[Rfam]
RNA sequence: AAGAAGAUUCUAUGAGAGAGCGUUAGCCACCGAAGGGACAAGUAAUGUUUCAUGUCAAGAAACAUUGUGAAUUUCUCAGGUAAAAGUAGUAGAAUUGGACG
Numbered sequence: 001a002a003g004a005a006g007a008u009u010c011u012a013u014g015a016g017a018g019a020g021c022g023u024u025a026g027c028c029a030c031c032g033a034a035g036g037g038a039c040a041a042g043u044a045a046u047g048u049u050u051c052a053u054g055u056c057a058a059g060a061a062a063c064a065u066u067g068u069g070a071a072u073u074u075c076u077c078a079g080g081u082a083a084a085a086g087u088a089g090u091a092g093a094a095u096u097g098g099a100c101g
Stems, first nucleotide, its partner, number of pairs: 006096008020027002029081003032077002036075003042068010